[Rfam]
RNA sequence: GGGCUGUCGGGAAGCAGAGAUCCGCCGGGCGUUCCAACUGGUCGCCCUUGGUCCGGCGGGGAGCUAGUGGCGAAACCGAGCCCGUAGAUC
Number, nucleotide and partner (000 for none) at each position: 001g090002g089003g000004c087005u086006g085007u084008c000009g082010g081011g000012a000013a065014g064015c063016a000017g000018a000019g000020a000021u000022c059023c058024g057025c056026c055027g054028g053029g052030c000031g000032u000033u000034c000035c000036a000037a000038c000039u000040g077041g076042u073043c072044g071045c070046c069047c000048u000049u000050g000051g000052u029053c028054c027055g026056g025057c024058g023059g022060g000061g000062a000063g015064c014065u013066a000067g000068u000069g046070g045071c044072g043073a042074a000075a000076c041077c040078g000079a000080g000081c010082c009083c000084g007085u006086a005087g004088a000089u002090c001

The record is a 90-nucleotide RNA sequence from Actinoplanes sp. TBRC 11911, which matches "c-di-GMP-II-GAG riboswitch aptamer" in Rfam.
Its family is annotated with regulation of gene expression and cyclic-di-GMP binding in the Gene Ontology.
It scores 53 bits against the family's covariance model.
A reference for the family is Weinberg et al. (2017), "Bioinformatic analysis of riboswitch structures uncovers variant classes with altered ligand specificity", Proc Natl Acad Sci U S A.